[Rfam]
RNA sequence: UGAUCUGUCUGGGAGUAAAUACUCAUUUAGUUAUAACAAACUCACACCUGAUUGCUCAAAAUUACCCGUGAAAACUACUGUAUAAACAAUAACUUUUUAAGAUU
Dot-bracket structure: ...(((.....(..((...(....((.(((((........................................)))))..))...)...))..)......)))..
RNA: MIR480 microRNA precursor family
Organism: Populus trichocarpa